Description: Rfam assigns this 74-nucleotide RNA from Elusimicrobium minutum to the family "tRNA". Gene Ontology term of the family: triplet codon-amino acid adaptor activity. The source organism's lineage runs through Bacteria, Elusimicrobiota, Elusimicrobia, Elusimicrobium and Elusimicrobium minutum. Rfam classes the family as a transfer RNA.
RNA sequence: GUCACCGUAGCUCAGCUGGUUAGAGCGGGCGUUUCAUAAGCGCCAGGUCGGUGGUUCGAGCCCACCCGGUGACA
Numbered sequence: 001g002u003c004a005c006c007g008u009a010g011c012u013c014a015g016c017u018g019g020u021u022a023g024a025g026c027g028g029g030c031g032u033u034u035c036a037u038a039a040g041c042g043c044c045a046g047g048u049c050g051g052u053g054g055u056u057c058g059a060g061c062c063c064a065c066c067c068g069g070u071g072a073c074a
Stems, first nucleotide, its partner, number of pairs: 001073007010026004028044005050066005